[Rfam]
The family of this 65-nucleotide RNA sequence from Scopulibacillus darangshiensis is "Bacillaceae-1 RNA". The family's RNA type in Rfam is small RNA. NCBI's taxonomy places the organism under Bacteria, Bacillati, Bacillota, Bacilli, Scopulibacillus. The family has 95 seed sequences and 5,721 matches in Rfam 15.1.

RNA sequence: ACAUAAGGGCACUGGGUAAAGAUGUAACAUCCUGUUACAACGCCAGUACUAGCACGUCCUGUGCG
Numbered sequence: 001a002c003a004u005a006a007g008g009g010c011a012c013u014g015g016g017u018a019a020a021g022a023u024g025u026a027a028c029a030u031c032c033u034g035u036u037a038c039a040a041c042g043c044c045a046g047u048a049c050u051a052g053c054a055c056g057u058c059c060u061g062u063g064c065g
Stems, first nucleotide, its partner, number of pairs: 011047005024038005052064004